[Rfam]
RNA sequence: UAACUUCAGUGAACAUUCAACGCUGUCGGUGAGUUUUCAGAUUUAAAAGAAACCAUCGACCGUUGACUGUACCUUGAGGUUUA
Numbered sequence: 001u002a003a004c005u006u007c008a009g010u011g012a013a014c015a016u017u018c019a020a021c022g023c024u025g026u027c028g029g030u031g032a033g034u035u036u037u038c039a040g041a042u043u044u045a046a047a048a049g050a051a052a053c054c055a056u057c058g059a060c061c062g063u064u065g066a067c068u069g070u071a072c073c074u075u076g077a078g079g080u081u082u083a
Base pairs, nucleotide, nucleotide: 001083002082003081004079005078006077007076008075014069015068017066018065019064020063021062022061025060026059027058028057029056030055031054033053034052035051036050
This 83-nucleotide sequence from Sarcophilus harrisii belongs to the Rfam family "mir-181 microRNA precursor family". For this family Rfam cites "microRNAs: tiny regulators with great potential" (Ambros, Cell, 2001). The base pairs follow the family's consensus structure, which was predicted with PFOLD. Lineage of the source: Eukaryota > Chordata > Mammalia > Theria > Sarcophilus. Gene Ontology terms of the family: RISC complex and miRNA-mediated post-transcriptional gene silencing.